Rfam assigns this 67-nucleotide RNA sequence from Megalops atlanticus to the family "mir-33 microRNA precursor family". Rfam 15.1 lists 1,467 matches to the family in 815 species. It scores 73 bits against the family's covariance model.
RNA sequence: CUGCGGUGCAUUGUAGUUGCAUUGCAUGUGUCUGCGCUGAGUGCAAUGUUUCUGCAGUGCAGCACAG
Dot-bracket structure: (((..(((((((((((..(.(((((((.............))))))).)..)))))))))).).)))

The base pairs follow the family's consensus structure, which was predicted with PFOLD. A reference for the family is Li et al. (2009), "Direct sequencing and expression analysis of a large number of miRNAs in Aedes aegypti and a multi-species survey of novel mosquito miRNAs", BMC Genomics. The source organism's lineage runs through Eukaryota, Chordata, Teleostei, Elopocephalai and Megalops.